[Rfam]
RNA sequence: AAGAUGCCCCUCUGGAGCAGGACUUCCUUCAGUGGGGCUUUGGUGCUCACUGAGUCUGUCCCUUGAGUGUGUCAUU
Dot-bracket structure: (.(((((.(.(..((.(((.(((.....((((((((((....)).)))))))))))))).))..).).))))).).
The record is a 76-nucleotide sequence from Myotis lucifugus, which matches "mir-9229 microRNA precursor family" in Rfam. The family's consensus secondary structure was predicted with RNAalifold. Rfam links the family to the GO terms RISC complex and miRNA-mediated post-transcriptional gene silencing. Rfam 15.1 lists 27,225 matches to the family in 9 species.